[Rfam]
RNA sequence: CCACUGCGUGGUGCAGGCACCCUCGACUUGUCGGGGUGGUUUGCACCAGGCGGACGCGGGGGGGACAUAUUUCACAGCGUGUCCCGGGCCCGACCCCGCACUUUUCUCCUGUUCCUACUCCUACUAACAGUAGGGGUAGGGAUCUUUUUGCUCCCUGCUCGGUAAGCAGGGGGCCUAAA
Number, nucleotide and partner (000 for none) at each position: 001c000002c000003a000004c000005u000006g051007c050008g000009u048010g047011g046012u045013g044014c000015a000016g041017g040018c039019a000020c000021c036022c035023u034024c033025g032026a031027c000028u000029u000030g000031u026032c025033g024034g023035g022036g021037u000038g000039g018040u017041u016042u000043g000044c013045a012046c011047c010048a009049g000050g007051c006052g000053g000054a000055c000056g099057c098058g097059g096060g095061g094062g085063g084064g083065a082066c081067a080068u000069a000070u000071u000072u000073c000074a000075c000076a000077g000078c000079g000080u067081g066082u065083c064084c063085c062086g000087g000088g000089c000090c000091c000092g000093a000094c061095c060096c059097c058098g057099c056100a000101c000102u000103u000104u000105u000106c000107u000108c000109c000110u000111g000112u142113u141114c140115c139116u138117a137118c136119u135120c134121c133122u132123a131124c130125u000126a000127a000128c000129a000130g124131u123132a122133g121134g120135g119136g118137u117138a116139g115140g114141g113142a112143u000144c000145u000146u000147u000148u000149u000150g174151c173152u172153c171154c170155c169156u168157g167158c000159u165160c000161g000162g000163u000164a000165a159166g000167c157168a156169g155170g154171g153172g152173g151174c150175c000176u000177a000178a000179a000